[Rfam]
RNA sequence: GUGAAUUCUCAGGGCGGGGUGAAAGUCCCCACCGGCGGUGAUGGCCGAGAGGCCGAGCCCGCGAGCGCUUCCCCGCUCUCCCGGCGGGGAAGGUCAGCAGAUCCGGUGCGAUCCCGGAGCCGACGGUCACAGUCCGGAUGGAAGAGAAUGUCG
Number, nucleotide and partner (000 for none) at each position: 001g000002u000003g151004a000005a149006u148007u147008c146009u145010c144011a000012g000013g000014g000015c000016g000017g029018g028019g027020u000021g000022a000023a000024a000025g000026u000027c019028c018029c017030c000031a133032c132033c122034g121035g062036c061037g060038g059039u000040g000041a000042u000043g000044g000045c000046c000047g000048a000049g000050a000051g000052g000053c000054c000055g000056a000057g120058c119059c038060c037061g036062c035063g000064a000065g098066c097067g000068c000069u000070u000071c000072c000073c000074c000075g000076c000077u000078c000079u000080c000081c000082c000083g000084g000085c000086g000087g000088g000089g000090a000091a000092g000093g000094u000095c000096a000097g066098c065099a000100g000101a000102u118103c117104c116105g115106g114107u000108g000109c000110g000111a000112u000113c000114c106115c105116g104117g103118a102119g058120c057121c034122g033123a000124c136125g135126g134127u000128c000129a000130c000131a000132g032133u031134c126135c125136g124137g000138a000139u000140g000141g000142a000143a000144g010145a009146g008147a007148a006149u005150g000151u003152c000153g000